[Rfam]
RNA sequence: GUCAGAGGAUCAAAGACUAAGAAUGCCGCGUCCUGCGGCAACGUCUUUGUGGCACCUUCCUUGGGGC
Numbered sequence: 001g002u003c004a005g006a007g008g009a010u011c012a013a014a015g016a017c018u019a020a021g022a023a024u025g026c027c028g029c030g031u032c033c034u035g036c037g038g039c040a041a042c043g044u045c046u047u048u049g050u051g052g053c054a055c056c057u058u059c060c061u062u063g064g065g066g067c
Base pairs, nucleotide, nucleotide: 011049012048013047014046015045016044017043025039026038027037028036029035052067053066055064056063
The record is a 67-nucleotide RNA from Bacillus sp. MUM 13, which matches "Bacillaceae-1 RNA" in Rfam. The match comes from Rfam's covariance-model search (56 bits). It is annotated as a small RNA. NCBI's taxonomy places the organism under Bacteria, Bacillati, Bacillota, Caryophanales, Bacillus.